[Rfam]
RNA sequence: CCAAUGAGGGAUCUGAAGGAAGCCGGCGCCAAACUUGCUACUCAAGCUCGGUGCGAACCUCAGGCAGGCCUAACGGAAAGGGCGAGAUACCCGCGACUAUCAAAGCCCGAUAUCCUUUCCGUAUUCCGUUGGGUAGAGGAGGUGGGUGAGCAAGGAAAGUGCAUGAC
Numbered sequence: 001c002c003a004a005u006g007a008g009g010g011a012u013c014u015g016a017a018g019g020a021a022g023c024c025g026g027c028g029c030c031a032a033a034c035u036u037g038c039u040a041c042u043c044a045a046g047c048u049c050g051g052u053g054c055g056a057a058c059c060u061c062a063g064g065c066a067g068g069c070c071u072a073a074c075g076g077a078a079a080g081g082g083c084g085a086g087a088u089a090c091c092c093g094c095g096a097c098u099a100u101c102a103a104a105g106c107c108c109g110a111u112a113u114c115c116u117u118u119c120c121g122u123a124u125u126c127c128g129u130u131g132g133g134u135a136g137a138g139g140a141g142g143u144g145g146g147u148g149a150g151c152a153a154g155g156a157a158a159g160u161g162c163a164u165g166a167c
Base pairs, nucleotide, nucleotide: 022167024165025164030159034154035153036152037151038150039149040147041146042145043144044143058142059141060140061139068134069133070132072130073129074128075127076126077125078124080108081107082106083105086101087100088099089098
A member of the RNA family "Group II catalytic intron D1-D4-3" from Desulfobacter latus, 167 nucleotides long.
It scores 79 bits against the family's covariance model.
The base pairs follow the family's consensus structure.
On this family, see Bonen and Vogel, Trends Genet 2001: "The ins and outs of group II introns".